[Rfam]
RNA sequence: CAUGGAGAAAACUGACUUGGCUGGUGUGAUAGAGAAGUCAGCUUGUUUACAUGCUUAUUCCAUG
Numbered sequence: 001c002a003u004g005g006a007g008a009a010a011a012c013u014g015a016c017u018u019g020g021c022u023g024g025u026g027u028g029a030u031a032g033a034g035a036a037g038u039c040a041g042c043u044u045g046u047u048u049a050c051a052u053g054c055u056u057a058u059u060c061c062a063u064g
Stems, first nucleotide, its partner, number of pairs: 001064007009056002012053001014047003019043007026030001
Shown here is a 64-nucleotide RNA from Theropithecus gelada, a member of the family "MAT2A 3'UTR stem loop F". The literature on the family includes a 2011 paper in Genome Res by Parker et al., "New families of human regulatory RNA structures identified by comparative analysis of vertebrate genomes". The base pairs follow the family's consensus structure, which is taken from published work. NCBI's taxonomy places the organism under Eukaryota, Eumetazoa, Tetrapoda, Euarchontoglires, Theropithecus.